The record is a 42-nucleotide RNA from Zizania palustris, which matches "Guanidine-II riboswitch aptamer (mini-ykkC)" in Rfam. About the family: Simpler in structure and has fewer highly conserved nucleotide positions than the ykkC-yxkD leader. Despite this each of its two stem-loop structures directly bind free guanidine. Therefore, mini-ykkC RNA motif represents a distinct class of guanidine-sensing RNAs. Its crystal structure was also determined. A search with the family's covariance model found it, with a score of 33 bits. Gene Ontology term of the family: regulation of gene expression.
[Rfam]
RNA sequence: UCCGGAGGACGGCCUCCGAACUGGACUCCAGAGGACGGCCUC
Numbered sequence: 001u002c003c004g005g006a007g008g009a010c011g012g013c014c015u016c017c018g019a020a021c022u023g024g025a026c027u028c029c030a031g032a033g034g035a036c037g038g039c040c041u042c
Base pairs, nucleotide, nucleotide: 001020003018004017005016006015007014008013031042032041033040034039